A member of the RNA family "Plant small nucleolar RNA U3" from Hibiscus trionum, 204 nucleotides long. Gene Ontology terms of the family: RNA processing and nucleolus. The family has 24 seed sequences and 3,759 matches in Rfam 15.1.
[Rfam]
RNA sequence: ACGACUUUAUUUGAACAUGAUCUGUUCUAUAGGCUCCUAUCUUCGUAGCCUUGAGCUCUAAGGAGACAAUAUUCUAUGUCUGGUUGAUGAACAAAAAUUGUGUGAUCAGAGCGCGAUUACUGGUUUGGUGCAUCCUUAACCGCAGAGAAUUGUUCUCAGCUUGCCUAGUCUGGCUGGAAUGGUUACGCAACUGUCUGACAGAUU
Numbered sequence: 001a002c003g004a005c006u007u008u009a010u011u012u013g014a015a016c017a018u019g020a021u022c023u024g025u026u027c028u029a030u031a032g033g034c035u036c037c038u039a040u041c042u043u044c045g046u047a048g049c050c051u052u053g054a055g056c057u058c059u060a061a062g063g064a065g066a067c068a069a070u071a072u073u074c075u076a077u078g079u080c081u082g083g084u085u086g087a088u089g090a091a092c093a094a095a096a097a098u099u100g101u102g103u104g105a106u107c108a109g110a111g112c113g114c115g116a117u118u119a120c121u122g123g124u125u126u127g128g129u130g131c132a133u134c135c136u137u138a139a140c141c142g143c144a145g146a147g148a149a150u151u152g153u154u155c156u157c158a159g160c161u162u163g164c165c166u167a168g169u170c171u172g173g174c175u176g177g178a179a180u181g182g183u184u185a186c187g188c189a190a191c192u193g194u195c196u197g198a199c200a201g202a203u204u
Stems, first nucleotide, its partner, number of pairs: 001038001003035001005033003013027005043069001045067002049063005078203005098190011110154004121142005127136002156177006163170001
The literature on the family includes a 2010 paper in RNA Biol by Marz and Stadler, "Comparative analysis of eukaryotic U3 snoRNA". About the family: Small nucleolar RNAs (snoRNAs) are involved in the processing and modification of rRNA in the nucleolus. There are two main classes of snoRNAs: the box C/D class, and the box H/ACA class. U3 snoRNA is a member of the box C/D class.